Overview: The record is a 252-nucleotide sequence from Trifolium subterraneum, which matches "MIR2655 microRNA precursor family" in Rfam. NCBI's taxonomy places the organism under Eukaryota, Mesangiospermae, Pentapetalae, fabids, Trifolium. Its family is annotated with RISC complex and miRNA-mediated post-transcriptional gene silencing in the Gene Ontology.

RNA sequence: CCCUUAUCUUUUAAAAGUUUCAUGUUGGUCCCUUAUCUUUUCUGCAGGUUUCAAGUUGGUCCCUCCCGUCAAAAUUUUCACUAUUACCGUUAAAUUUGGACACAUGUCAAUUGUCCAAGUGUGCCACGUGUCCAAAUUAGUUUGCCACGUGUACAAAUUUAACGGUAAUAGUGAAAAAUUUGACGGAAGGGACCAACUUGAAACCUGCAGAAAAGAUAAAGGACCAACCUGAAAUUUUUAAAAGAUAAGGGA
Numbered sequence: 001c002c003c004u005u006a007u008c009u010u011u012u013a014a015a016a017g018u019u020u021c022a023u024g025u026u027g028g029u030c031c032c033u034u035a036u037c038u039u040u041u042c043u044g045c046a047g048g049u050u051u052c053a054a055g056u057u058g059g060u061c062c063c064u065c066c067c068g069u070c071a072a073a074a075u076u077u078u079c080a081c082u083a084u085u086a087c088c089g090u091u092a093a094a095u096u097u098g099g100a101c102a103c104a105u106g107u108c109a110a111u112u113g114u115c116c117a118a119g120u121g122u123g124c125c126a127c128g129u130g131u132c133c134a135a136a137u138u139a140g141u142u143u144g145c146c147a148c149g150u151g152u153a154c155a156a157a158u159u160u161a162a163c164g165g166u167a168a169u170a171g172u173g174a175a176a177a178a179u180u181u182g183a184c185g186g187a188a189g190g191g192a193c194c195a196a197c198u199u200g201a202a203a204c205c206u207g208c209a210g211a212a213a214a215g216a217u218a219a220a221g222g223a224c225c226a227a228c229c230u231g232a233a234a235u236u237u238u239u240a241a242a243a244g245a246u247a248a249g250g251g252a
Stems, first nucleotide, its partner, number of pairs: 002250007024228002027225003031221001033219011045207003